[Rfam]
RNA sequence: CGGGCCGUGGCGCAGUCUGGUUAGCGCGUCCGUCUGGGGGGCGGAAGGCCGAGAGUUCGAAUCUCUCCGGCCCGA
Numbered sequence: 001c002g003g004g005c006c007g008u009g010g011c012g013c014a015g016u017c018u019g020g021u022u023a024g025c026g027c028g029u030c031c032g033u034c035u036g037g038g039g040g041g042c043g044g045a046a047g048g049c050c051g052a053g054a055g056u057u058c059g060a061a062u063c064u065c066u067c068c069g070g071c072c073c074g075a
Stems, first nucleotide, its partner, number of pairs: 001074007010027004029045005051067005

The family of this 75-nucleotide RNA sequence from Paracoccus suum is "tRNA". It scores 63 bits against the family's covariance model. A reference for the family is Hou (1993), "The tertiary structure of tRNA and the development of the genetic code", Trends Biochem Sci. From the family's description: Transfer RNA (tRNA) molecules are approximately 80 nucleotides in length.